[Rfam]
RNA: Small nucleolar RNA Z122
RNA sequence: UUUGGGAAAUGAUGAGAGAUUCAAACAGGUUAGCAUAGGCUUAAUGGUUUUUUUGGCAUGCUGAAUAUUUUUUGCACGUCAGUCUGAUCCCAAA
Numbered sequence: 001u002u003u004g005g006g007a008a009a010u011g012a013u014g015a016g017a018g019a020u021u022c023a024a025a026c027a028g029g030u031u032a033g034c035a036u037a038g039g040c041u042u043a044a045u046g047g048u049u050u051u052u053u054u055g056g057c058a059u060g061c062u063g064a065a066u067a068u069u070u071u072u073u074g075c076a077c078g079u080c081a082g083u084c085u086g087a088u089c090c091c092a093a094a
Stems, first nucleotide, its partner, number of pairs: 001094007